Rfam assigns this 123-nucleotide RNA from Aquimarina aggregata to the family "Bacteroidete tryptophan peptide leader RNA".

[Rfam]
RNA sequence: UUUGAACCAAUAAAAAAAUAAUGAAAACAAUCUUAACAAAUAAUUGGUGGUGGUUAUCUCAAAACGAAAACGUCGUGAGAUAGCUCCUGUUAUUAUGUUAAGUAAACAUAUCUAAGGCUUGUC
Number, nucleotide and partner (000 for none) at each position: 001u000002u000003u000004g000005a000006a000007c000008c000009a000010a000011u000012a000013a000014a000015a000016a000017a000018a000019u000020a000021a000022u000023g000024a000025a000026a000027a000028c000029a000030a000031u000032c000033u000034u000035a000036a098037c097038a096039a000040a093041u092042a091043a090044u089045u000046g088047g087048u000049g085050g000051u000052g000053g084054u083055u000056a081057u080058c079059u000060c000061a000062a000063a000064a073065c072066g071067a000068a000069a000070a000071c066072g065073u064074c000075g000076u000077g000078a000079g058080a057081u056082a000083g054084c053085u049086c000087c047088u046089g044090u043091u042092a041093u040094u000095a000096u038097g037098u036099u000100a000101a000102g000103u000104a000105a000106a000107c000108a000109u000110a000111u000112c000113u000114a000115a000116g000117g000118c000119u000120u000121g000122u000123c000
NCBI's taxonomy places the organism under Bacteria, Flavobacteriia, Flavobacteriales, Flavobacteriaceae, Aquimarina. Rfam classes the family as a cis-regulatory leader.